[Rfam]
RNA sequence: UAACCGUUAUCGAAAGAUAACGAUGAACGUGCAGAAGUCAGCAGAAGUCAUAUUAGCUGAAAGUUUUUUUUCAGUGAAGGAC
Numbered sequence: 001u002a003a004c005c006g007u008u009a010u011c012g013a014a015a016g017a018u019a020a021c022g023a024u025g026a027a028c029g030u031g032c033a034g035a036a037g038u039c040a041g042c043a044g045a046a047g048u049c050a051u052a053u054u055a056g057c058u059g060a061a062a063g064u065u066u067u068u069u070u071u072c073a074g075u076g077a078a079g080g081a082c
Base pairs, nucleotide, nucleotide: 001025002024005022006021007020008019009018010017011016038045039044047082048081049080056075057074058073059072060071061070
The record is an 82-nucleotide RNA sequence from Blautia sp. An249, which matches "Group II catalytic intron D1-D4-1" in Rfam.
Group II introns are found in rRNA, tRNA and mRNA of organelles in fungi, plants and protists, and also in mRNA in bacteria.
Lineage of the source: Bacteria > Bacillota > Clostridia > Lachnospiraceae > Blautia.